Annotation: This 112-nucleotide RNA sequence from Firmicutes bacterium CAG:240 belongs to the Rfam family "TPP riboswitch aptamer (THI element)". The family's consensus secondary structure is taken from published work. Lineage of the source: Bacteria > Bacillati > Bacillota.

RNA sequence: CUUGUGCAAAAGGGGUGCUGAGUUUUCUCGGCUGAGACGGAAAGAAUCGAAUUUCCGAGACCCUCGAACCUGAUCCGGGUAAUGCCGGCGUAGGAAACGAAAAUUUUUAUAU
Numbered sequence: 001c002u003u004g005u006g007c008a009a010a011a012g013g014g015g016u017g018c019u020g021a022g023u024u025u026u027c028u029c030g031g032c033u034g035a036g037a038c039g040g041a042a043a044g045a046a047u048c049g050a051a052u053u054u055c056c057g058a059g060a061c062c063c064u065c066g067a068a069c070c071u072g073a074u075c076c077g078g079g080u081a082a083u084g085c086c087g088g089c090g091u092a093g094g095a096a097a098c099g100a101a102a103a104u105u106u107u108u109a110u111a112u
Stems, first nucleotide, its partner, number of pairs: 011064004016058001017032005039056004069094004075088004